[Rfam]
A member of the RNA family "mir-160 microRNA precursor family" from Anisodus acutangulus, 94 nucleotides long. The family's consensus secondary structure was predicted with PFOLD. Its family is annotated with RISC complex and miRNA-mediated post-transcriptional gene silencing in the Gene Ontology. A search with the family's covariance model found it, with a score of 69 bits. NCBI's taxonomy places the organism under Eukaryota, Embryophyta, Spermatophyta, Gunneridae, Anisodus. The family has 7 seed sequences and 1,502 matches in Rfam 15.1. On this family, see Rhoades et al., Cell 2002: "Prediction of plant microRNA targets".
RNA sequence: AUGUGCCUGGCUCCCUGUAUGCCACACGCUUUCACCAAUCUGCAGCUUCUUUGAUUGGCUGAUCAGGGGGUGGCGUGCGAGGAGCCAAGCAUAC
Dot-bracket structure: .(((((.(((((((.(((((((((..(.(....................................).)..))))))))).))))))).))))).
Numbered sequence: 001a002u003g004u005g006c007c008u009g010g011c012u013c014c015c016u017g018u019a020u021g022c023c024a025c026a027c028g029c030u031u032u033c034a035c036c037a038a039u040c041u042g043c044a045g046c047u048u049c050u051u052u053g054a055u056u057g058g059c060u061g062a063u064c065a066g067g068g069g070g071u072g073g074c075g076u077g078c079g080a081g082g083a084g085c086c087a088a089g090c091a092u093a094c
Stems, first nucleotide, its partner, number of pairs: 002093005008087007016079009027068001029066001